The record is an 80-nucleotide RNA from Arabis alpina, which matches "Small nucleolar RNA Z199" in Rfam.
About the family: snoZ199 is a C/D box small nucleolar RNA, which acts as a methylation guide RNA for sites on 18S and 25S rRNA. Rice snoZ199 is reported to be homologous to Arabidopsis snoR13.
Gene Ontology terms of the family: nucleolus and RNA processing.
Taxonomically the source falls in Arabis (Eukaryota, Streptophyta, Magnoliopsida, Pentapetalae).
The family has 17 seed sequences and 953 matches in Rfam 15.1.
[Rfam]
RNA sequence: GAUCAGUUGAUGAGUUAAUACUGCAACAAUAUGAUGGAGAUAAUCUUCCCUGAUUCUUAGUAUUUAAGUCUCUGAUGAUC
Numbered sequence: 001g002a003u004c005a006g007u008u009g010a011u012g013a014g015u016u017a018a019u020a021c022u023g024c025a026a027c028a029a030u031a032u033g034a035u036g037g038a039g040a041u042a043a044u045c046u047u048c049c050c051u052g053a054u055u056c057u058u059a060g061u062a063u064u065u066a067a068g069u070c071u072c073u074g075a076u077g078a079u080c
Stems, first nucleotide, its partner, number of pairs: 001079001003078003036049003039045001